This 493-nucleotide part of an RNA from Prorocentrum micans belongs to the Rfam family "Eukaryotic large subunit ribosomal RNA". The organism belongs to Prorocentrum, within Eukaryota. Its Rfam clan is "LSU clan". Its family is annotated with structural constituent of ribosome and ribosome in the Gene Ontology. The base pairs follow the family's consensus structure, which is taken from published work.

RNA sequence: UAGUACAAAGUAGGUAAGGGAAGUCGGCAAAAUAGAUCCGUAACUUCGGGAAAAGGAUUGGCUCUGAGGGUUGGGUAUAGGGGUCCUUGAUUGAUGUUCGAGCUGAGCAGAAGCUACUUGACGCCUCUGGUGGAUAGUGGAUUCGCGCAUGGCAGAAUUGCCGUUCAAGGAACGCCUUUCGGGGCUUUUCCUGUGCAGUGAACAACCAACUCAGAACUGGAGCGGACAAGGGGAAUCCGACUGUUUAAUUAAAACAAAGCAUUGCGAUGGCCUCAAACGGCUGUUGACGCAAUGUGAUUUCUGCCCAGUGCUCUGAAUGUCAAAGUGAUGAAAUUCAACCAAGCGCGGGUAAACGGCGGGAGUAACUAUGACUCUCUUAAGGUAGCCAAAUGCCUCGUCAUCUAAUUAGUGACGCGCAUGAAUGGAUUAACGAGAUUCCCACUGUCCCUAUCUACUAUCUAGCGAAACCACAGCCAAGGGAACGGGCUUGGCA
Numbered sequence: 001u002a003g004u005a006c007a008a009a010g011u012a013g014g015u016a017a018g019g020g021a022a023g024u025c026g027g028c029a030a031a032a033u034a035g036a037u038c039c040g041u042a043a044c045u046u047c048g049g050g051a052a053a054a055g056g057a058u059u060g061g062c063u064c065u066g067a068g069g070g071u072u073g074g075g076u077a078u079a080g081g082g083g084u085c086c087u088u089g090a091u092u093g094a095u096g097u098u099c100g101a102g103c104u105g106a107g108c109a110g111a112a113g114c115u116a117c118u119u120g121a122c123g124c125c126u127c128u129g130g131u132g133g134a135u136a137g138u139g140g141a142u143u144c145g146c147g148c149a150u151g152g153c154a155g156a157a158u159u160g161c162c163g164u165u166c167a168a169g170g171a172a173c174g175c176c177u178u179u180c181g182g183g184g185c186u187u188u189u190c191c192u193g194u195g196c197a198g199u200g201a202a203c204a205a206c207c208a209a210c211u212c213a214g215a216a217c218u219g220g221a222g223c224g225g226a227c228a229a230g231g232g233g234a235a236u237c238c239g240a241c242u243g244u245u246u247a248a249u250u251a252a253a254a255c256a257a258a259g260c261a262u263u264g265c266g267a268u269g270g271c272c273u274c275a276a277a278c279g280g281c282u283g284u285u286g287a288c289g290c291a292a293u294g295u296g297a298u299u300u301c302u303g304c305c306c307a308g309u310g311c312u313c314u315g316a317a318u319g320u321c322a323a324a325g326u327g328a329u330g331a332a333a334u335u336c337a338a339c340c341a342a343g344c345g346c347g348g349g350u351a352a353a354c355g356g357c358g359g360g361a362g363u364a365a366c367u368a369u370g371a372c373u374c375u376c377u378u379a380a381g382g383u384a385g386c387c388a389a390a391u392g393c394c395u396c397g398u399c400a401u402c403u404a405a406u407u408a409g410u411g412a413c414g415c416g417c418a419u420g421a422a423u424g425g426a427u428u429a430a431c432g433a434g435a436u437u438c439c440c441a442c443u444g445u446c447c448c449u450a451u452c453u454a455c456u457a458u459c460u461a462g463c464g465a466a467a468c469c470a471c472a473g474c475c476a477a478g479g480g481a482a483c484g485g486g487c488u489u490g491g492c493a
Base pairs, nucleotide, nucleotide: 001461002460003459009456010455011454012453013452014451015450016449018447019446020445035059036058037057038056039055044049060218061217063215064214065213066212067211068210069207070206071205072204073203075196076195077194078193079192080191081190082189083188084171085170086169088167089166090165096158097157098156099155102153103152104151105150107148108147110144111143112142114140115139116138117137118136122132123131124130125129219223231440232439233438234437235436236435237434238432239431242256243255244254259295260294261293262292263291264290265289266288270282272280273279299426300425301424303357304356305355308354309353310350311349312348313347315346318345319344320343326337327336328335358376359375360374361373362372363371377381397413398412399411400410401409474491475490476489477488478487